[Rfam]
RNA sequence: AUUUCUUUUAACAUAUCAGGAAGUCAAAUUGACAGUGAAAAAAGAAGUAAGAAGUUGAAAGCCAUCAUUGCCUAUAACUAAAACUCAUAAACCCAAACCAUGUUUCUUUCUUCACUACCAAUUCGACUUUUUGCUAUGUUAAAAGAAAU
Numbered sequence: 001a002u003u004u005c006u007u008u009u010a011a012c013a014u015a016u017c018a019g020g021a022a023g024u025c026a027a028a029u030u031g032a033c034a035g036u037g038a039a040a041a042a043a044g045a046a047g048u049a050a051g052a053a054g055u056u057g058a059a060a061g062c063c064a065u066c067a068u069u070g071c072c073u074a075u076a077a078c079u080a081a082a083a084c085u086c087a088u089a090a091a092c093c094c095a096a097a098c099c100a101u102g103u104u105u106c107u108u109u110c111u112u113c114a115c116u117a118c119c120a121a122u123u124c125g126a127c128u129u130u131u132u133g134c135u136a137u138g139u140u141a142a143a144a145g146a147a148a149u
Base pairs, nucleotide, nucleotide: 004146005145006144007143008142009141010140011139012138013137014136015135017133018132020130021129022128023127024126025125027123028122029121030120031119034116035115036114037113038112039111041109042108043107044106045105046104048102049101051099056095057094
Dot-bracket structure: ...((((((((((((.((.((((((.(((((..((((((.((((((.((.(....((....................................))...).)).)))))).))))))..))))).)))))).)).))))))))))))...

Source information:
Rfam assigns this 149-nucleotide RNA from Gossypium klotzschianum to the family "MIR8643 microRNA precursor family". The organism belongs to Gossypium, within Eukaryota.